L2-Alphaproteobacteria ribosomal protein leader: a 61-nucleotide RNA from Falsigemmobacter intermedius.
[Rfam]
RNA sequence: GGGGAUCUACGGAGCCCUUCACCGCAGGGUUAAAAUCCUGCCAGCAGACGGAAGACAGAAA
Numbered sequence: 001g002g003g004g005a006u007c008u009a010c011g012g013a014g015c016c017c018u019u020c021a022c023c024g025c026a027g028g029g030u031u032a033a034a035a036u037c038c039u040g041c042c043a044g045c046a047g048a049c050g051g052a053a054g055a056c057a058g059a060a061a
Base pairs, nucleotide, nucleotide: 001018002017003016004015006014008012024041025040026039027038028037029036030035

The match comes from Rfam's covariance-model search (53 bits).